The family of this 77-nucleotide RNA from Alligator mississippiensis is "Mammalian CPEB3 ribozyme". A search with the family's covariance model found it, with a score of 50 bits.
RNA sequence: GUUGCAGAGCAGCAGGCCGUAGCAGAAGCACUCACAGUGUGGCCCUGUCAGAUUCCAACAAGUCUGCAAAUUCUGCU
Numbered sequence: 001g002u003u004g005c006a007g008a009g010c011a012g013c014a015g016g017c018c019g020u021a022g023c024a025g026a027a028g029c030a031c032u033c034a035c036a037g038u039g040u041g042g043c044c045c046u047g048u049c050a051g052a053u054u055c056c057a058a059c060a061a062g063u064c065u066g067c068a069a070a071u072u073c074u075g076c077u
Stems, first nucleotide, its partner, number of pairs: 015044004021077007028040003049066006